[Rfam]
RNA sequence: AGACCGUGUAGCUCCGCGGAUUUGGCGCGGGGGUAUCCACGAUCCCGCCAUGAACGGGAUGCGACCACGGGGA
Numbered sequence: 001a002g003a004c005c006g007u008g009u010a011g012c013u014c015c016g017c018g019g020a021u022u023u024g025g026c027g028c029g030g031g032g033g034u035a036u037c038c039a040c041g042a043u044c045c046c047g048c049c050a051u052g053a054a055c056g057g058g059a060u061g062c063g064a065c066c067a068c069g070g071g072g073a
Stems, first nucleotide, its partner, number of pairs: 004070005012032007042060006